[Rfam]
RNA sequence: AUCCCUUGGUGAUGGGGUUAUAUCACCACCUCCCUGUUGGACUUGCCCCGGCUUUUGGUCGGGGCAUUUUU
Numbered sequence: 001a002u003c004c005c006u007u008g009g010u011g012a013u014g015g016g017g018u019u020a021u022a023u024c025a026c027c028a029c030c031u032c033c034c035u036g037u038u039g040g041a042c043u044u045g046c047c048c049c050g051g052c053u054u055u056u057g058g059u060c061g062g063g064g065c066a067u068u069u070u071u
Stems, first nucleotide, its partner, number of pairs: 008027006045065008
The family of this 71-nucleotide RNA sequence from Octadecabacter arcticus is "Singlet oxygen resistance RNA X".
The family has 8 seed sequences and 528 matches in Rfam 15.1.
SorX (RSs2461)like SorY is a singlet oxygen induced sRNA that counteracts oxidative stress by targeting mRNA for a transporter in Rhodobacter.
It is annotated as a small RNA.
The literature on the family includes a 2016 paper in RNA Biol by Peng et al., "Regulation of a polyamine transporter by the conserved 3' UTR-derived sRNA SorX confers resistance to singlet oxygen and organic hydroperoxides in Rhodobacter sphaeroides".